[Rfam]
RNA sequence: UACUGUUCAUGAUGAAUUCUAAGCAAUGGGAAUCUCUCUGAAAGAGGCUGAGGAGAAGUCUUUUAUGCUGAAACAGUA
Numbered sequence: 001u002a003c004u005g006u007u008c009a010u011g012a013u014g015a016a017u018u019c020u021a022a023g024c025a026a027u028g029g030g031a032a033u034c035u036c037u038c039u040g041a042a043a044g045a046g047g048c049u050g051a052g053g054a055g056a057a058g059u060c061u062u063u064u065a066u067g068c069u070g071a072a073a074c075a076g077u078a
Stems, first nucleotide, its partner, number of pairs: 001078007

Rfam assigns this 78-nucleotide RNA from Toxostoma redivivum to the family "Small nucleolar RNA SNORD79". From the family's description: snoRNA U79 or Z22 is found in intron 7 of the gas5 gene in humans and is also present in mice. The family is grouped with related families in Rfam's "SNORD74 clan". Rfam 15.1 lists 784 matches to the family in 651 species. Its family is annotated with RNA processing and nucleolus in the Gene Ontology. The family's consensus secondary structure was predicted with PFOLD. The organism belongs to Toxostoma, within Eukaryota. The family's RNA type in Rfam is C/D-box small nucleolar RNA.